Nucleotides: 057
Base pairs, nucleotide, nucleotide: 019037020036022034023033024032
Number, partner (000 for none) and nucleotide at each position: 001000a002000c003000a004000u005000g006000a007000a008000c009000u010000u011000u012000g013000u014000a015000c016000c017000g018000c019037g020036c021000a022034c023033a024032u025000c026000g027000c028000u029000u030000a031000u032024a033023u034022g035000u036020g037019u038000u039000c040000u041000a042000g043000a044000g045000g046000g047000u048000c049000u050000c051000g052000u053000a054000g055000g056000g057000a
Plastid-ndhJ 3UTR RNA: a 57-nucleotide RNA from Coptis chinensis.
It is annotated as a cis-regulatory element.
NCBI's taxonomy places the organism under Eukaryota, Viridiplantae, Spermatophyta, Coptidoideae, Coptis.
On this family, see Richter et al., Plant Commun 2023: "Retrograde signaling in plants: A critical review focusing on the GUN pathway and beyond".